tRNA: a 72-nucleotide RNA from Conger conger. The match comes from Rfam's covariance-model search (49 bits). Its family is annotated with triplet codon-amino acid adaptor activity in the Gene Ontology. It is annotated as a transfer RNA.

RNA sequence: GGGGAUGUAGCUCAGUGGUAGAGCGCUUGCUUUGCAUGUGCAACGGCCUGGGAUCAAUCCCCAGCAUCUCCC
Dot-bracket structure: (((((((..((((.......))))..((((.........))))....(((((.......)))))))))))).
Numbered sequence: 001g002g003g004g005a006u007g008u009a010g011c012u013c014a015g016u017g018g019u020a021g022a023g024c025g026c027u028u029g030c031u032u033u034g035c036a037u038g039u040g041c042a043a044c045g046g047c048c049u050g051g052g053a054u055c056a057a058u059c060c061c062c063a064g065c066a067u068c069u070c071c072c
Stems, first nucleotide, its partner, number of pairs: 001071007010024004027043004048064005